[Rfam]
Nucleotides: 182
Stems, first nucleotide, its partner, number of pairs: 016095003024088009038044002045074004051068001053067002111175002113172003126162002130158005137153002139149003
Number, partner (000 for none) and nucleotide at each position: 001000a002000a003000c004000a005000u006000c007000a008000u009000a010000u011000a012000u013000c014000a015000u016095c017094a018093c019000g020000a021000a022000u023000g024088c025087g026086a027085g028084u029083a030082u031081u032080a033000u034000u035000u036000u037000a038044u039043u040000u041000u042000a043039a044038g045074a046073a047072g048071a049000u050000u051068g052000u053067g054066u055000u056000c057000u058000u059000u060000u061000a062000c063000u064000a065000u066054a067053c068051c069000u070000u071048u072047c073046u074045u075000a076000c077000u078000u079000a080032u081031g082030a083029u084028a085027c086026u087025u088024g089000u090000c091000u092000a093018g094017u095016g096000u097000a098000g099000a100000u101000a102000a103000a104000c105000c106000a107000c108000c109000a110000a111175g112174a113172a114171c115170g116000u117000u118000g119000c120000u121000g122000g123000g124000c125000g126162c127161c128000u129000g130158a131157u132156g133155u134154c135000g136000a137153u138152c139149u140148u141147u142000u143000u144000u145000a146000a147141g148140a149139a150000u151000u152138g153137a154134g155133a156132u157131g158130u159000u160000g161127g162126g163000a164000a165000u166000c167000a168000g169000c170115u171114g172113u173000a174112u175111c176000u177000a178000c179000a180000u181000u182000a